[Rfam]
RNA sequence: ACUUGGAGUGAUGAAAACUUCACCUUAGGUGGGUGCAACAGACCGUUUUGGUUUUUACUGCAUCUGCCAAUGCUGGGGUUUGUCAUAGUUACACUGACCGUGU
Numbered sequence: 001a002c003u004u005g006g007a008g009u010g011a012u013g014a015a016a017a018c019u020u021c022a023c024c025u026u027a028g029g030u031g032g033g034u035g036c037a038a039c040a041g042a043c044c045g046u047u048u049u050g051g052u053u054u055u056u057a058c059u060g061c062a063u064c065u066g067c068c069a070a071u072g073c074u075g076g077g078g079u080u081u082g083u084c085a086u087a088g089u090u091a092c093a094c095u096g097a098c099c100g101u102g103u
Base pairs, nucleotide, nucleotide: 001103002102004100005099006098
Dot-bracket structure: ((.(((...........................................................................................))).))
The family of this 103-nucleotide RNA sequence from Nothocercus julius is "Small nucleolar RNA SNORD46". Rfam's curators write: U40 is a C/D box small nucleolar RNA, also known as snoZ153 in plants. It is annotated as a C/D-box small nucleolar RNA. The base pairs follow the family's consensus structure. A search with the family's covariance model found it, with a score of 61 bits. On this family, see Nicoloso et al., J Mol Biol 1996: "Intron-encoded, antisense small nucleolar RNAs: the characterization of nine novel species points to their direct role as guides for the 2'-O-ribose methylation of rRNAs". Lineage of the source: Eukaryota > Craniata > Vertebrata > Saurischia > Nothocercus.